[Rfam]
RNA sequence: UAGGUAGGCGUUGGUGAUCCUUAUGGGAUGCAUGCUGCACAUGCACUUGUUGCGGGAAUGGGCGGAGUACGCACAGCUGGAGAUCUGGUAGCGCGUAUGC
Numbered sequence: 001u002a003g004g005u006a007g008g009c010g011u012u013g014g015u016g017a018u019c020c021u022u023a024u025g026g027g028a029u030g031c032a033u034g035c036u037g038c039a040c041a042u043g044c045a046c047u048u049g050u051u052g053c054g055g056g057a058a059u060g061g062g063c064g065g066a067g068u069a070c071g072c073a074c075a076g077c078u079g080g081a082g083a084u085c086u087g088g089u090a091g092c093g094c095g096u097a098u099g100c
Stems, first nucleotide, its partner, number of pairs: 007038001010035002014031003018026002074091001076089002079086002
Dot-bracket structure: ......(..((..(((.((.....))..)))..))..)...................................(.((.((....)).)).).........
Pyrrolysine insertion sequence mtbB: a 100-nucleotide RNA sequence from Desulforhopalus singaporensis.
Rfam links the family to the GO term pyrrolysine incorporation.
The organism belongs to Desulforhopalus, within Bacteria.
The match comes from Rfam's covariance-model search (66 bits).
A reference for the family is Theil Have et al. (2013), "Effects of using coding potential, sequence conservation and mRNA structure conservation for predicting pyrroly-sine containing genes", BMC Bioinformatics.